[Rfam]
RNA sequence: AUUGAAUGGGAAUAAAGACCCAACAUUAUAUGGAUGAAGAAUCCCUAUAAAUCAACAUUUUUCAAUAGUUAAAAUGCUUGAUUUUCAUUAAAAACAAGAUGGUUUCCUACCAUUUCCUCUACAAAAAAACUCUUGUCAGAUUAACAACUCACAAGGGUUUUUUC
Numbered sequence: 001a002u003u004g005a006a007u008g009g010g011a012a013u014a015a016a017g018a019c020c021c022a023a024c025a026u027u028a029u030a031u032g033g034a035u036g037a038a039g040a041a042u043c044c045c046u047a048u049a050a051a052u053c054a055a056c057a058u059u060u061u062u063c064a065a066u067a068g069u070u071a072a073a074a075u076g077c078u079u080g081a082u083u084u085u086c087a088u089u090a091a092a093a094a095c096a097a098g099a100u101g102g103u104u105u106c107c108u109a110c111c112a113u114u115u116c117c118u119c120u121a122c123a124a125a126a127a128a129a130c131u132c133u134u135g136u137c138a139g140a141u142u143a144a145c146a147a148c149u150c151a152c153a154a155g156g157g158u159u160u161u162u163u164c
Base pairs, nucleotide, nucleotide: 008107009106010105011104012103049084050083051082052081053080054079055078058076060074061073062072064070085097088094127160128159129158130157131156132155133154134153135152136151138149139148
This 164-nucleotide RNA from Enterococcus dispar belongs to the Rfam family "Listeria sRNA rli38". Rfam classes the family as a small RNA. For this family Rfam cites "The Listeria transcriptional landscape from saprophytism to virulence" (Toledo-Arana et al., Nature, 2009). The match comes from Rfam's covariance-model search (84 bits). The family's consensus secondary structure was predicted with RNAalifold.